[Rfam]
This 54-nucleotide RNA sequence from Clarias magur belongs to the Rfam family "UnaL2 LINE 3' element". NCBI's taxonomy places the organism under Eukaryota, Opisthokonta, Craniata, Neopterygii, Clarias. Rfam links the family to the GO term transposition, RNA-mediated. The family's RNA type in Rfam is cis-regulatory element. The eel long interspersed element (LINE) UnaL2 and its partner short interspersed element (SINE) share a conserved 3' tail containing a stem-loop that is critical for their retrotransposition. Presumably, the first step of retrotransposition is the recognition of their 3' tails by UnaL2-encoded reverse transcriptase. The solution structure of a 17-nucleotide RNA derived from the 3' tail of UnaL2 was determined by NMR. The literature on the family includes a 2004 paper in RNA by Baba et al., "Solution structure of an RNA stem-loop derived from the 3' conserved region of eel LINE UnaL2". The match comes from Rfam's covariance-model search (60 bits). Pairs were carried over by alignment from the consensus structure, which is taken from published work.
RNA sequence: UCAAAGCACUUUUGUAAGUCGCUCUGGAUAAAAGCGUCUGCCAAAUGCCUAAAU
Numbered sequence: 001u002c003a004a005a006g007c008a009c010u011u012u013u014g015u016a017a018g019u020c021g022c023u024c025u026g027g028a029u030a031a032a033a034g035c036g037u038c039u040g041c042c043a044a045a046u047g048c049c050u051a052a053a054u
Stems, first nucleotide, its partner, number of pairs: 013043001014041003020036004025031001